[Rfam]
RNA: U11 spliceosomal RNA
Organism: Chara braunii
RNA sequence: AAAAAGGGCCAGUUGGCUAUUAUAUAUGCCAUGUACGGUUUAGGCCGUGCACUGUAUGGACAUCAAGACAUAUGGCUGGCAAAUUUAUGAAGACUUCAAUAGGGUUCGCACGCUAUGCUGACCCGGAA
Dot-bracket structure: .......(((((.((((..........))))((((((((....))))))))(((((((..........))))))))))))................(..(.(((((.(((.....))).)))))))..